[Rfam]
RNA sequence: UCGCGCUAGGCGGGGAGGUAGCGGUGCCCUGUACUCGCAAUCCGCUGUAGCGAGGCUGAAUUCCUUUCCUAGGUUAGUUCUACGUAUGGUCUGACGUAAGUAAGUGGUGUUGACAUUUAGGUCCUGCGCAACGAGGACCCAUGAACCCUGUCAGGUCCGGAAGGAAGCAGCAGUAAGUGGUCAUCUUCGUGUGCCGUGGGGCAGCCUAGAUCGAGCUAACUGCUUGCGUACGCGUAGGUAGGCUAUUCCAAAGAAAGGUGCGCGG
Numbered sequence: 001u002c003g004c005g006c007u008a009g010g011c012g013g014g015g016a017g018g019u020a021g022c023g024g025u026g027c028c029c030u031g032u033a034c035u036c037g038c039a040a041u042c043c044g045c046u047g048u049a050g051c052g053a054g055g056c057u058g059a060a061u062u063c064c065u066u067u068c069c070u071a072g073g074u075u076a077g078u079u080c081u082a083c084g085u086a087u088g089g090u091c092u093g094a095c096g097u098a099a100g101u102a103a104g105u106g107g108u109g110u111u112g113a114c115a116u117u118u119a120g121g122u123c124c125u126g127c128g129c130a131a132c133g134a135g136g137a138c139c140c141a142u143g144a145a146c147c148c149u150g151u152c153a154g155g156u157c158c159g160g161a162a163g164g165a166a167g168c169a170g171c172a173g174u175a176a177g178u179g180g181u182c183a184u185c186u187u188c189g190u191g192u193g194c195c196g197u198g199g200g201g202c203a204g205c206c207u208a209g210a211u212c213g214a215g216c217u218a219a220c221u222g223c224u225u226g227c228g229u230a231c232g233c234g235u236a237g238g239u240a241g242g243c244u245a246u247u248c249c250a251a252a253g254a255a256a257g258g259u260g261c262g263c264g265g
Base pairs, nucleotide, nucleotide: 001265002264003263004262005261006260009057010056011055012030013029014028015027017025019023034054035053036052037051038050063258064257065256066255067254068253072248073247075245076244079242080241081240082239083238085236086235087234088233092230093229096227097226098225099224100223101222104220105219106217107216108215115211116210117209118208119207120206121205122204123200124199125198126197127196128195129191130190132189133188134187135186136185139180140179141178142177148173149172150171151170156165157164158163
RNA: Bacterial large signal recognition particle RNA
Organism: Fictibacillus macauensis